[Rfam]
RNA sequence: UCGUUGUGUUGUAUACCCGCCGCAGUAGGGAACUCGAGGGCCCUUGGGCACAGCAAAAAUUGUGUGCACUUCGAUUGUGACCCCAGGUCAGGCGGGACUACCCGCUGAGUUUAAGCAUAUCAAUAAGCGGAGGAAAAGAAACUUACAGGAUUCCCCUAGUAACGGCGAGCGAACCGGGAAUAGCCCAGCUUGAAAUUGAGCAGCUACGCUGUUCAAAUUGUAGUCUGGAGAAGCGUGUUCAGUGACGGACCGGGCCCAAGUCCCCUGGAGGGUCGCCAGAGAGGGUGAGAGCCCCGUCGUGCCCGGACCUGUUGCACCACGAGGCGCUGUCUACGGUCGGGUUGUUUGGGAAUGCACCCCAAUCGGCGGUAAAUUCCGUCCAAGGCUAAUACAGGCGAGAGACCGAUAAAACAAGUACCGCGAGGGAAAAAUGAAAAGGACUUUGAAAAGAGAGUCAAAGAGUGCUUGAAUUGUCGGGAGGGAAG
Numbered sequence: 001u002c003g004u005u006g007u008g009u010u011g012u013a014u015a016c017c018c019g020c021c022g023c024a025g026u027a028g029g030g031a032a033c034u035c036g037a038g039g040g041c042c043c044u045u046g047g048g049c050a051c052a053g054c055a056a057a058a059a060u061u062g063u064g065u066g067c068a069c070u071u072c073g074a075u076u077g078u079g080a081c082c083c084c085a086g087g088u089c090a091g092g093c094g095g096g097a098c099u100a101c102c103c104g105c106u107g108a109g110u111u112u113a114a115g116c117a118u119a120u121c122a123a124u125a126a127g128c129g130g131a132g133g134a135a136a137a138g139a140a141a142c143u144u145a146c147a148g149g150a151u152u153c154c155c156c157u158a159g160u161a162a163c164g165g166c167g168a169g170c171g172a173a174c175c176g177g178g179a180a181u182a183g184c185c186c187a188g189c190u191u192g193a194a195a196u197u198g199a200g201c202a203g204c205u206a207c208g209c210u211g212u213u214c215a216a217a218u219u220g221u222a223g224u225c226u227g228g229a230g231a232a233g234c235g236u237g238u239u240c241a242g243u244g245a246c247g248g249a250c251c252g253g254g255c256c257c258a259a260g261u262c263c264c265c266u267g268g269a270g271g272g273u274c275g276c277c278a279g280a281g282a283g284g285g286u287g288a289g290a291g292c293c294c295c296g297u298c299g300u301g302c303c304c305g306g307a308c309c310u311g312u313u314g315c316a317c318c319a320c321g322a323g324g325c326g327c328u329g330u331c332u333a334c335g336g337u338c339g340g341g342u343u344g345u346u347u348g349g350g351a352a353u354g355c356a357c358c359c360c361a362a363u364c365g366g367c368g369g370u371a372a373a374u375u376c377c378g379u380c381c382a383a384g385g386c387u388a389a390u391a392c393a394g395g396c397g398a399g400a401g402a403c404c405g406a407u408a409a410a411a412c413a414a415g416u417a418c419c420g421c422g423a424g425g426g427a428a429a430a431a432u433g434a435a436a437a438g439g440a441c442u443u444u445g446a447a448a449a450g451a452g453a454g455u456c457a458a459a460g461a462g463u464g465c466u467u468g469a470a471u472u473g474u475c476g477g478g479a480g481g482g483a484a485g
Base pairs, nucleotide, nucleotide: 018094019093020092021091101132102130103129104128105127106126112119113118142148143147152179153178154177155176163169182387183386184385185384191220192219199210200209201208232328233327234326235325242320243319244318254304260274263272264271265270277281283295284294285293339360340359341358343356344355345354365381366380369377418425419424
Annotation
A member of the RNA family "Archaeal large subunit ribosomal RNA" from Daucus carota, 485 nucleotides of a longer RNA. The base pairs follow the family's consensus structure, which is taken from published work. Lineage of the source: Eukaryota > Spermatophyta > eudicotyledons > asterids > Daucus carota.